[Rfam]
RNA sequence: AACGUCCGACGCUGAUCCUCCCUCCCCUGGAGUGAUCCCGGAACGUAAGGUCCCUCCCCAGACCCCGUUCCCGAGCCCCGCCGGCCCCCCCUGCCGGCGGGGCUUUUUA
Numbered sequence: 001a002a003c004g005u006c007c008g009a010c011g012c013u014g015a016u017c018c019u020c021c022c023u024c025c026c027c028u029g030g031a032g033u034g035a036u037c038c039c040g041g042a043a044c045g046u047a048a049g050g051u052c053c054c055u056c057c058c059c060a061g062a063c064c065c066c067g068u069u070c071c072c073g074a075g076c077c078c079c080g081c082c083g084g085c086c087c088c089c090c091c092u093g094c095c096g097g098c099g100g101g102g103c104u105u106u107u108u109a
Base pairs, nucleotide, nucleotide: 004012006011014037015036016035017034018032019031020030021029040071041070042069043068044067045066049064050063051062052061074104075103076102077101078100079099080098081097082096083095084094085093